The record is a 167-nucleotide RNA sequence, which matches "Group II catalytic intron D1-D4-3" in Rfam.
[Rfam]
RNA sequence: UCUAUCGUGAGGUGGAAUCUGAAGGAAGCUGUAAGCAAAUCUCUGGUCCGACGAACAGAAAUCACAUAUAAGGCUAGGCUACGAGAGACAAGUUGGCCUAAAGCAACGAAGUCUAAUAACUAUCACUUUUGUAGUAGCAGAGUAAAUGUGGCGGAUAUAUGGAGAGA
Numbered sequence: 001u002c003u004a005u006c007g008u009g010a011g012g013u014g015g016a017a018u019c020u021g022a023a024g025g026a027a028g029c030u031g032u033a034a035g036c037a038a039a040u041c042u043c044u045g046g047u048c049c050g051a052c053g054a055a056c057a058g059a060a061a062u063c064a065c066a067u068a069u070a071a072g073g074c075u076a077g078g079c080u081a082c083g084a085g086a087g088a089c090a091a092g093u094u095g096g097c098c099u100a101a102a103g104c105a106a107c108g109a110a111g112u113c114u115a116a117u118a119a120c121u122a123u124c125a126c127u128u129u130u131g132u133a134g135u136a137g138c139a140g141a142g143u144a145a146a147u148g149u150g151g152c153g154g155a156u157a158u159a160u161g162g163a164g165a166g167a
Base pairs, nucleotide, nucleotide: 001016002015003014004013005012006011040165041164042163043162044161045160046156047155048154049153050152062151063150064149065148066147067146073143074142075141078138079137080136081135082134086114087113088112089111092107093106094105095104
The match comes from Rfam's covariance-model search (131 bits).